[Rfam]
RNA sequence: AAAAAGGGCGCGUUGCGAGGUGUGUGUCACUUGUGGGCACGCUCCAUGCGACAAGGGCUCUAUUGGCCCUUGCGGUAUGGCAAUCAAGACAUAUCGAGCGCAUAAUUUUUGGCAUAAAUGGAUGGUUCACUGUUUCAGGCUUCGCU
Numbered sequence: 001a002a003a004a005a006g007g008g009c010g011c012g013u014u015g016c017g018a019g020g021u022g023u024g025u026g027u028c029a030c031u032u033g034u035g036g037g038c039a040c041g042c043u044c045c046a047u048g049c050g051a052c053a054a055g056g057g058c059u060c061u062a063u064u065g066g067c068c069c070u071u072g073c074g075g076u077a078u079g080g081c082a083a084u085c086a087a088g089a090c091a092u093a094u095c096g097a098g099c100g101c102a103u104a105a106u107u108u109u110u111g112g113c114a115u116a117a118a119u120g121g122a123u124g125g126u127u128c129a130c131u132g133u134u135u136c137a138g139g140c141u142u143c144g145c146u
Base pairs, nucleotide, nucleotide: 008101009100010099011098013051014050015049016048017047052072053071054070055069056068057067058066059065073096074095075094076093077092078091079090120146121145124143125142128139130138131137132136
The family of this 146-nucleotide RNA sequence from Lichtheimia corymbifera is "U11 spliceosomal RNA".